[Rfam]
RNA sequence: GGGGUGUGAUCAGAGCAGGAAGCCUAAAGAAAUGGCUCCUUUGUUUACAACACACCCAACAGAAAUCUGGGUUUAUUGACAGUGGGCAUAAAAGUCUUGGCCUACCAAUGAAUACAUAACCCUACAGCA
Numbered sequence: 001g002g003g004g005u006g007u008g009a010u011c012a013g014a015g016c017a018g019g020a021a022g023c024c025u026a027a028a029g030a031a032a033u034g035g036c037u038c039c040u041u042u043g044u045u046u047a048c049a050a051c052a053c054a055c056c057c058a059a060c061a062g063a064a065a066u067c068u069g070g071g072u073u074u075a076u077u078g079a080c081a082g083u084g085g086g087c088a089u090a091a092a093a094g095u096c097u098u099g100g101c102c103u104a105c106c107a108a109u110g111a112a113u114a115c116a117u118a119a120c121c122c123u124a125c126a127g128c129a
Base pairs, nucleotide, nucleotide: 002057003056004055005054006053007052008051013046014045015044016043017042018041019040022036023035024034070122071121073119077112080110081109084102085101087099088098091095
This 129-nucleotide RNA sequence from Erinaceus europaeus belongs to the Rfam family "Small nucleolar RNA SNORA11". For this family Rfam cites "A novel experimental approach for systematic identification of box H/ACA snoRNAs from eukaryotes" (Gu et al., Nucleic Acids Res, 2005). Rfam classes the family as an H/ACA-box small nucleolar RNA. The base pairs follow the family's consensus structure, which was predicted with RNAalifold. U107 (SNORA11) is a member of the H/ACA class of snoRNAs that guide the sites of modification of uridines to pseudouridines.